This 150-nucleotide sequence from Proteus mirabilis belongs to the Rfam family "sok antitoxin (CssrC)". About the family: Also identified in Shigella as CssrC. The literature on the family includes a 2007 paper in Mol Microbiol by Kawano et al., "An antisense RNA controls synthesis of an SOS-induced toxin evolved from an antitoxin". Gene Ontology term of the family: mRNA binding.
[Rfam]
RNA sequence: GGGUGCUUGAUCCUGUCCGGUUCAAGCAUUUAGUGAGAGCCAGAUAGAAGAAAGCCCCGAUAAGGUUAUUUAUUACCAUAAUCGAGGCUGCAAUUCUCUACUUAGCACUAGAAAUUGUGCCUCCUAAUAAGUUAGGAGUCAAGGAAAAUG
Numbered sequence: 001g002g003g004u005g006c007u008u009g010a011u012c013c014u015g016u017c018c019g020g021u022u023c024a025a026g027c028a029u030u031u032a033g034u035g036a037g038a039g040c041c042a043g044a045u046a047g048a049a050g051a052a053a054g055c056c057c058c059g060a061u062a063a064g065g066u067u068a069u070u071u072a073u074u075a076c077c078a079u080a081a082u083c084g085a086g087g088c089u090g091c092a093a094u095u096c097u098c099u100a101c102u103u104a105g106c107a108c109u110a111g112a113a114a115u116u117g118u119g120c121c122u123c124c125u126a127a128u129a130a131g132u133u134a135g136g137a138g139u140c141a142a143g144g145a146a147a148a149u150g
Stems, first nucleotide, its partner, number of pairs: 001058003005055004011049001013047005019041005026034002059083002067078001070075001084123005091117005097112004128143001